Description
Shown here is a 131-nucleotide RNA sequence from Myotis brandtii, a member of the family "Small nucleolar RNA SNORA51". NCBI's taxonomy places the organism under Eukaryota, Metazoa, Chordata, Amniota, Myotis. Its family is annotated with RNA processing and nucleolus in the Gene Ontology. The family's consensus secondary structure was predicted with PFOLD. A search with the family's covariance model found it, with a score of 100 bits. From the family's description: ACA51 is a member of the H/ACA class of snoRNA that guide the sites of modification of uridines to pseudouridines.
[Rfam]
RNA sequence: GGCCUCCUGGUGCCGACCACAGGCCGAAUUCUUACACUGACGGGGCAGAAACAGGAGGCAGAGUAACCAACCCCAUACACCUCAGCUCAGGCCUACUGUCCUUGGUCUGUAUUGUGAAUGGGGAGACAGUG
Numbered sequence: 001g002g003c004c005u006c007c008u009g010g011u012g013c014c015g016a017c018c019a020c021a022g023g024c025c026g027a028a029u030u031c032u033u034a035c036a037c038u039g040a041c042g043g044g045g046c047a048g049a050a051a052c053a054g055g056a057g058g059c060a061g062a063g064u065a066a067c068c069a070a071c072c073c074c075a076u077a078c079a080c081c082u083c084a085g086c087u088c089a090g091g092c093c094u095a096c097u098g099u100c101c102u103u104g105g106u107c108u109g110u111a112u113u114g115u116g117a118a119u120g121g122g123g124a125g126a127c128a129g130u131g
Stems, first nucleotide, its partner, number of pairs: 002059007020043001022041001026037001029034001071123006083109003087105005